A member of the RNA family "Burkholderia sRNA Bp1_Cand738_SIPHT" from Paraburkholderia caballeronis, 208 nucleotides long.
The literature on the family includes a 2012 paper in BMC Genomics by Khoo et al., "Computational discovery and RT-PCR validation of novel Burkholderia conserved and Burkholderia pseudomallei unique sRNAs".
Lineage of the source: Bacteria > Pseudomonadati > Pseudomonadota > Betaproteobacteria > Paraburkholderia.
The match comes from Rfam's covariance-model search (178 bits).
Pairs were carried over by alignment from the consensus structure, which was predicted with RNAalifold.
RNA sequence: GGAAAAACCAGCGCAGGGGCGCUGGCGAGGACAGCAAAACUAGACCGUACUAGGCCGUGCAGGAAAUCGGCAAAACGGCGACGCGUUGCGUCUGAAGGACCGGGACAAUGGUUAAAAAUUUCAAGCCCUGCAACCAGUGUGGACGGAUUCUAUCAGGGUUUUAUAGAUCGUCAACACUAUAACAAAGCAAAGUCAUAACUAAUUGUAA
Numbered sequence: 001g002g003a004a005a006a007a008c009c010a011g012c013g014c015a016g017g018g019g020c021g022c023u024g025g026c027g028a029g030g031a032c033a034g035c036a037a038a039a040c041u042a043g044a045c046c047g048u049a050c051u052a053g054g055c056c057g058u059g060c061a062g063g064a065a066a067u068c069g070g071c072a073a074a075a076c077g078g079c080g081a082c083g084c085g086u087u088g089c090g091u092c093u094g095a096a097g098g099a100c101c102g103g104g105a106c107a108a109u110g111g112u113u114a115a116a117a118a119u120u121u122c123a124a125g126c127c128c129u130g131c132a133a134c135c136a137g138u139g140u141g142g143a144c145g146g147a148u149u150c151u152a153u154c155a156g157g158g159u160u161u162u163a164u165a166g167a168u169c170g171u172c173a174a175c176a177c178u179a180u181a182a183c184a185a186a187g188c189a190a191a192g193u194c195a196u197a198a199c200u201a202a203u204u205g206u207a208a
Stems, first nucleotide, its partner, number of pairs: 008025007045111004054071004080092005138176003143171004149167004